[Rfam]
RNA sequence: UGGUCAUUUCAAAGAAGGCCCGUGGAGUUGUAAAACCAAGAGCUCUUAACACUGUGACCAAAUAUUGAAGUUCUCUAUAGAAUGAUACAACACUAAACAGUUUUCCUGAGGAGAAGUACAA
Numbered sequence: 001u002g003g004u005c006a007u008u009u010c011a012a013a014g015a016a017g018g019c020c021c022g023u024g025g026a027g028u029u030g031u032a033a034a035a036c037c038a039a040g041a042g043c044u045c046u047u048a049a050c051a052c053u054g055u056g057a058c059c060a061a062a063u064a065u066u067g068a069a070g071u072u073c074u075c076u077a078u079a080g081a082a083u084g085a086u087a088c089a090a091c092a093c094u095a096a097a098c099a100g101u102u103u104u105c106c107u108g109a110g111g112a113g114a115a116g117u118a119c120a121a
Base pairs, nucleotide, nucleotide: 002059003058004057005056006055007054014047015046017044018043019042021040023039027036072114073113074112075111076110079107080106082104092101093100094099

Source information:
The record is a 121-nucleotide sequence from Prolemur simus, which matches "Small nucleolar RNA SNORA25" in Rfam. NCBI's taxonomy places the organism under Eukaryota, Metazoa, Craniata, Lemuriformes, Prolemur. By type it is an H/ACA-box small nucleolar RNA. It scores 97 bits against the family's covariance model. From the family's description: ACA25 is a member of the H/ACA class of snoRNA that guide the sites of modification of uridines to pseudouridines.